[Rfam]
RNA sequence: CGAUUAGGUAGAGGCUGCAAGGCUUAUUAGUAACGGGCGCUAGAUUGGCAUUGAUGAUCGUCCGUGAAAGGAAGUUUUGCCGAAGUAGAAACUGGGUUGCCGAUCCACUUCUGCUGGGGUCAUUUCGAAUAGGAAUGGCACUGUCAUGCGAACUCCGCAUGAUGAGCUACAGAUCGU
Numbered sequence: 001c002g003a004u005u006a007g008g009u010a011g012a013g014g015c016u017g018c019a020a021g022g023c024u025u026a027u028u029a030g031u032a033a034c035g036g037g038c039g040c041u042a043g044a045u046u047g048g049c050a051u052u053g054a055u056g057a058u059c060g061u062c063c064g065u066g067a068a069a070g071g072a073a074g075u076u077u078u079g080c081c082g083a084a085g086u087a088g089a090a091a092c093u094g095g096g097u098u099g100c101c102g103a104u105c106c107a108c109u110u111c112u113g114c115u116g117g118g119g120u121c122a123u124u125u126c127g128a129a130u131a132g133g134a135a136u137g138g139c140a141c142u143g144u145c146a147u148g149c150g151a152a153c154u155c156c157g158c159a160u161g162a163u164g165a166g167c168u169a170c171a172g173a174u175c176g177u
Stems, first nucleotide, its partner, number of pairs: 008170004017080009033065007084115007093107004116142002119139008144162007

This 177-nucleotide RNA from Sporosarcina luteola belongs to the Rfam family "Lysine riboswitch aptamer". It scores 110 bits against the family's covariance model. Lineage of the source: Bacteria > Bacillati > Bacillota > Caryophanales > Sporosarcina.